A member of the RNA family "Glm Y RNA activator of glmS mRNA" from Plesiomonas shigelloides, 143 nucleotides long. The family is grouped with related families in Rfam's "Glm clan". Lineage of the source: Bacteria > Pseudomonadati > Pseudomonadota > Gammaproteobacteria > Plesiomonas shigelloides. The literature on the family includes a 2008 paper in Nucleic Acids Res by Reichenbach et al., "The small RNA GlmY acts upstream of the sRNA GlmZ in the activation of glmS expression and is subject to regulation by polyadenylation in Escherichia coli". About the family: This family consists of a number of bacterial RNA genes of around 167 bases in length. A search with the family's covariance model found it, with a score of 97 bits.
RNA sequence: AAGCGCUCAUCCACCUUCUUAUGAUAGCUUAGCUUCAUAAACUUAUCGGAUGAUGCCAAUGUCAUGGAGUCUAACGUCCGACCCUUGAUAAUGACUACGGUCUUAUCUAAUUACGGACGCCACGUUGAGUGAGACUCCGCCCG
Numbered sequence: 001a002a003g004c005g006c007u008c009a010u011c012c013a014c015c016u017u018c019u020u021a022u023g024a025u026a027g028c029u030u031a032g033c034u035u036c037a038u039a040a041a042c043u044u045a046u047c048g049g050a051u052g053a054u055g056c057c058a059a060u061g062u063c064a065u066g067g068a069g070u071c072u073a074a075c076g077u078c079c080g081a082c083c084c085u086u087g088a089u090a091a092u093g094a095c096u097a098c099g100g101u102c103u104u105a106u107c108u109a110a111u112u113a114c115g116g117a118c119g120c121c122a123c124g125u126u127g128a129g130u131g132a133g134a135c136u137c138c139g140c141c142c143g
Stems, first nucleotide, its partner, number of pairs: 005056002007053006019040006026034003066138007075119005087107005121131003